[Rfam]
RNA: Group I catalytic intron
RNA sequence: GAGUAAUGAUCCUCGGGGUUACGUUAGGGGAAAACGUAAUUGUGGGGAUAAACUGUCAAAUUCCGGGGAACUCCUAAAGCUUCUGGUACCAAGCUCUAGUCGAAAGACUAUAAGUGGCUGAACUAAUUAUUCAGGUAUGGUAAUAAGUCAGGAGAUUUGUGAAAACAAAAUGGACGAUCGUGGAUCUAAAUCAGUAGUAGUGGAUCGUCACUAUACUGUAAAAGAGCAACGAGUAGACGGCAGUUGAUCUGUUAAAUUUGAACAUCUAAUAGAUUUAAGGUGUACUCUGCAGGGUUUCGAAAGAAAUAG
Numbered sequence: 001g002a003g004u005a006a007u008g009a010u011c012c013u014c015g016g017g018g019u020u021a022c023g024u025u026a027g028g029g030g031a032a033a034a035c036g037u038a039a040u041u042g043u044g045g046g047g048a049u050a051a052a053c054u055g056u057c058a059a060a061u062u063c064c065g066g067g068g069a070a071c072u073c074c075u076a077a078a079g080c081u082u083c084u085g086g087u088a089c090c091a092a093g094c095u096c097u098a099g100u101c102g103a104a105a106g107a108c109u110a111u112a113a114g115u116g117g118c119u120g121a122a123c124u125a126a127u128u129a130u131u132c133a134g135g136u137a138u139g140g141u142a143a144u145a146a147g148u149c150a151g152g153a154g155a156u157u158u159g160u161g162a163a164a165a166c167a168a169a170a171u172g173g174a175c176g177a178u179c180g181u182g183g184a185u186c187u188a189a190a191u192c193a194g195u196a197g198u199a200g201u202g203g204a205u206c207g208u209c210a211c212u213a214u215a216c217u218g219u220a221a222a223a224g225a226g227c228a229a230c231g232a233g234u235a236g237a238c239g240g241c242a243g244u245u246g247a248u249c250u251g252u253u254a255a256a257u258u259u260g261a262a263c264a265u266c267u268a269a270u271a272g273a274u275u276u277a278a279g280g281u282g283u284a285c286u287c288u289g290c291a292g293g294g295u296u297u298c299g300a301a302a303g304a305a306a307u308a309g
Stems, first nucleotide, its partner, number of pairs: 001014002022036003051245005057239001062184004066179002072174003185225002192218002198213005229288001231287005247274008294307005